[Rfam]
RNA sequence: GUGUGCAUGAUCCAAUUUGGUAAUUGGUACAGGCUUCAAACCUGUAGACGGCUAACGCCGUAGUUGUUCGAUUCAACCCUGCGCAC
Numbered sequence: 001g002u003g004u005g006c007a008u009g010a011u012c013c014a015a016u017u018u019g020g021u022a023a024u025u026g027g028u029a030c031a032g033g034c035u036u037c038a039a040a041c042c043u044g045u046a047g048a049c050g051g052c053u054a055a056c057g058c059c060g061u062a063g064u065u066g067u068u069c070g071a072u073u074c075a076a077c078c079c080u081g082c083g084c085a086c
Base pairs, nucleotide, nucleotide: 001086002085003084004083005082006081007080009078012027013026014025015024016023017022028046029045030044031043032042033041048061049060050059051058052057063077064076065075066074

Background: Selenocysteine transfer RNA: an 86-nucleotide RNA from Fragilariopsis cylindrus. A search with the family's covariance model found it, with a score of 77 bits. Gene Ontology term of the family: triplet codon-amino acid adaptor activity.